[Rfam]
RNA sequence: GGCUAGUUCGAAGGUAGCGAGUUAUCGCAACUGGUUGUUGAGUCAGUUGUGGAUUGAAUUUUUUGUUCUCUUUCCCUGCUUCUUACUGCUGCGUUUGACUUGUCUUGA
Number, nucleotide and partner (000 for none) at each position: 001g104002g103003c102004u000005a100006g099007u098008u097009c000010g096011a095012a000013g000014g092015u091016a087017g086018c000019g084020a083021g082022u000023u000024a000025u000026c000027g000028c000029a000030a000031c000032u000033g000034g000035u000036u000037g000038u000039u000040g000041a000042g000043u000044c000045a069046g068047u000048u000049g000050u000051g000052g000053a000054u000055u000056g000057a000058a000059u000060u000061u000062u000063u000064u000065g000066u000067u000068c046069u045070c000071u000072u000073u000074c000075c000076c000077u000078g000079c000080u000081u000082c021083u020084u019085a000086c017087u016088g000089c000090u000091g015092c014093g000094u000095u011096u010097g008098a007099c006100u005101u000102g003103u002104c001105u000106u000107g000108a000

The family of this 108-nucleotide sequence from Cebus imitator is "Y RNA".
Y RNAs are components of the Ro ribonucleoprotein particle (Ro RNP), in association with Ro60 and La proteins. The Y RNAs and Ro60 and La proteins are well conserved, but the function of the Ro RNP is not known.
Rfam 15.1 lists 26,986 matches to the family in 650 species.
Rfam classes the family as a non-coding RNA gene.
The organism belongs to Cebus, within Eukaryota.